[Rfam]
RNA sequence: AAGGCAGACCCUUCACAACGGAUCGUUCGGCACGUACCUGCCGAUGAAAGGAACAAAGA
Numbered sequence: 001a002a003g004g005c006a007g008a009c010c011c012u013u014c015a016c017a018a019c020g021g022a023u024c025g026u027u028c029g030g031c032a033c034g035u036a037c038c039u040g041c042c043g044a045u046g047a048a049a050g051g052a053a054c055a056a057a058g059a
Stems, first nucleotide, its partner, number of pairs: 009051002012048004027044006
This 59-nucleotide RNA from Bifidobacterium bombi belongs to the Rfam family "msiK RNA". By type it is a cis-regulatory element. Rfam 15.1 lists 1,374 matches to the family in 1,364 species.